[Rfam]
RNA: U1 spliceosomal RNA
RNA sequence: AUACUUAUCUGGCAGGGGAGAUACCAUGAUCACAAAGGUGGUUUUCCCAGGGCGUUGCUUAUCCGUUGCACUCUGGGUGCGCUGACCCCUGCAAUUUCCCCAAAUGUGAGAAACUCGACUGCAUAAUUUGUGAUUGUGGGGGACUGUGUUGGCGCUCUCUGA
Numbered sequence: 001a002u003a004c005u006u007a008u009c010u011g012g013c014a015g016g017g018g019a020g021a022u023a024c025c026a027u028g029a030u031c032a033c034a035a036a037g038g039u040g041g042u043u044u045u046c047c048c049a050g051g052g053c054g055u056u057g058c059u060u061a062u063c064c065g066u067u068g069c070a071c072u073c074u075g076g077g078u079g080c081g082c083u084g085a086c087c088c089c090u091g092c093a094a095u096u097u098c099c100c101c102a103a104a105u106g107u108g109a110g111a112a113a114c115u116c117g118a119c120u121g122c123a124u125a126a127u128u129u130g131u132g133a134u135u136g137u138g139g140g141g142g143a144c145u146g147u148g149u150u151g152g153c154g155c156u157c158u159c160u161g162a
Base pairs, nucleotide, nucleotide: 012122013121014120015119016048017047018046019045020044021043023042024041025040026039027038049090050089051088052087054086057082058081060079061078062077063076064075092117094115095113096112097111100108141160142159143158146155147154148153